The record is a 72-nucleotide RNA sequence from Medicago truncatula, which matches "MIR2629 microRNA precursor family" in Rfam. NCBI's taxonomy places the organism under Eukaryota, Spermatophyta, Magnoliopsida, eudicotyledons, Medicago. Rfam links the family to the GO terms RISC complex and miRNA-mediated post-transcriptional gene silencing.
[Rfam]
RNA sequence: UUCCGAAGUUUUCCUCAGCAGUUAACUGCAGCCGGUUCUUUAAGAUUUCGGCAGUUAAUUGCUGAAGGAUAU
Numbered sequence: 001u002u003c004c005g006a007a008g009u010u011u012u013c014c015u016c017a018g019c020a021g022u023u024a025a026c027u028g029c030a031g032c033c034g035g036u037u038c039u040u041u042a043a044g045a046u047u048u049c050g051g052c053a054g055u056u057a058a059u060u061g062c063u064g065a066a067g068g069a070u071a072u
Stems, first nucleotide, its partner, number of pairs: 012068002015065015